[Rfam]
The family of this 90-nucleotide sequence from Paenibacillus donghaensis is "c-di-GMP-I riboswitch aptamer".
Its family is annotated with cyclic-di-GMP binding in the Gene Ontology.
Lineage of the source: Bacteria > Bacillati > Bacilli > Paenibacillaceae > Paenibacillus.
Pairs were carried over by alignment from the consensus structure, which is taken from published work.
It scores 68 bits against the family's covariance model.
About the family: GEMM was predicted in a large-scale screen for bacterial structured RNA regulatory elements.
RNA sequence: CAUGUAUAAUCGCAAACCGUUCGAAAGGACGGGACGCAAAGCCAGGAGUCUAAAGCGCCGUAUUAGCGCAAUGAUCGUCCGACUGCCAUG
Numbered sequence: 001c002a003u004g005u006a007u008a009a010u011c012g013c014a015a016a017c018c019g020u021u022c023g024a025a026a027g028g029a030c031g032g033g034a035c036g037c038a039a040a041g042c043c044a045g046g047a048g049u050c051u052a053a054a055g056c057g058c059c060g061u062a063u064u065a066g067c068g069c070a071a072u073g074a075u076c077g078u079c080c081g082a083c084u085g086c087c088a089u090g
Stems, first nucleotide, its partner, number of pairs: 012037002017032006040084002043081001045080003048075003055069004